[Rfam]
RNA: Peptidase-S11 RNA
Organism: Kosakonia cowanii
RNA sequence: GCUAUUAUGCCAGAGCCAGCCCUGUUAUAACUCUCAUGAACAGAAGCGGUGUGCGUUAUAACGCGCGUGAAUAAUUUUCAGAAGCCU
Number, nucleotide and partner (000 for none) at each position: 001g000002c000003u000004a000005u000006u000007a000008u000009g000010c000011c000012a000013g000014a000015g050016c049017c048018a000019g047020c046021c000022c043023u042024g041025u040026u039027a000028u000029a000030a000031c000032u000033c000034u000035c000036a000037u000038g000039a026040a025041c024042a023043g022044a000045a000046g020047c019048g017049g016050u015051g066052u065053g064054c063055g062056u061057u000058a000059u000060a000061a056062c055063g054064c053065g052066c051067g000068u000069g000070a000071a000072u000073a000074a000075u000076u000077u000078u000079c000080a000081g000082a000083a000084g000085c000086c000087u000